RNA: Small nucleolar RNA Z102/R77
RNA sequence: GAAUGAGAUGAUGAAUUUCAUUGAAAACGGUUUUGAGUGCCGUAAUGAUGGCUGCAAAUCAUGUAUUAGCUCUAGCUGAUCAUUC
Numbered sequence: 001g002a003a004u005g006a007g008a009u010g011a012u013g014a015a016u017u018u019c020a021u022u023g024a025a026a027a028c029g030g031u032u033u034u035g036a037g038u039g040c041c042g043u044a045a046u047g048a049u050g051g052c053u054g055c056a057a058a059u060c061a062u063g064u065a066u067u068a069g070c071u072c073u074a075g076c077u078g079a080u081c082a083u084u085c
Stems, first nucleotide, its partner, number of pairs: 002084004035055001039052003